[Rfam]
RNA sequence: ACCUAACCCUGAUUUUCAUUAGCUGUGGGUUCUGGUCUUUUGUUCUCCGCCCGCUGUUUUUCUCGCUGACUUCCAGCGGGCCAGGAAAGUCCAGACCUGCAGCGGGCCACCGCGCGUUCCCGAGCCUCAAAAACAAACGUCAGCGCAGGAGCUCCAGGUUCGCCGGGAGCUCCGCGGCGCCGGGCCGCCCAGUCCCGUACCCGCCUACAGGCCGCGGCCGGCCUGGGGUCUUAGGACUCCGCUGCCGCCGCGAAGAGCUCGCCUCUGUCAGCCGCGGGGCGCCGGGGGCUGGGGCCAGGCCGGGCGAGCGCCGCGAGGACAGGAAUGGAACUGGUCCCCGUGUUCGGUGUCUUACCUGAGCUGUGGGAAGUGCACCCGGAACUCGGUUCUCACAACC
Dot-bracket structure: ....................................((((........((((((((........[[[[[[[[.))))))))....))))..............................................]].]]]]]]..........................(.(((((.....((((((((.((((((..(((((........(((((.((((..(((..........)))...))))))))).((((.....)))).......)))))....))))).)..))))..)))).........))))).)..........((((((((.((........((((..(.((........)).)...))))..)).))).)))))........